[Rfam]
RNA sequence: UGGUAAGGAUCAAAGGCUAAAUUCGCAACAUCCUGUUGCCAGACUCAAACGCGACGUCCUGUCGC
Numbered sequence: 001u002g003g004u005a006a007g008g009a010u011c012a013a014a015g016g017c018u019a020a021a022u023u024c025g026c027a028a029c030a031u032c033c034u035g036u037u038g039c040c041a042g043a044c045u046c047a048a049a050c051g052c053g054a055c056g057u058c059c060u061g062u063c064g065c
Stems, first nucleotide, its partner, number of pairs: 014045002017042001025039005051065005
Dot-bracket structure: .............((.(.......(((((.....)))))..).)).....(((((.....)))))
A member of the RNA family "Bacillaceae-1 RNA" from Bacillus sp. J14TS2, 65 nucleotides long. It is annotated as a small RNA.